[Rfam]
The family of this 70-nucleotide sequence from Rodentolepis nana is "HDV ribozyme from F. prausnitzii". The literature on the family includes a 2009 paper in Science by Webb et al., "Widespread occurrence of self-cleaving ribozymes".
RNA sequence: GGUGUUCGAUAGACUUACCUCCACGUGGUGCACCCUGGGCAACGUAUUCUCAUACGGCUAAAAUGUCUAU
Numbered sequence: 001g002g003u004g005u006u007c008g009a010u011a012g013a014c015u016u017a018c019c020u021c022c023a024c025g026u027g028g029u030g031c032a033c034c035c036u037g038g039g040c041a042a043c044g045u046a047u048u049c050u051c052a053u054a055c056g057g058c059u060a061a062a063a064u065g066u067c068u069a070u
Base pairs, nucleotide, nucleotide: 001034002033003032004031005030017029018028019027043056044055045054046053047052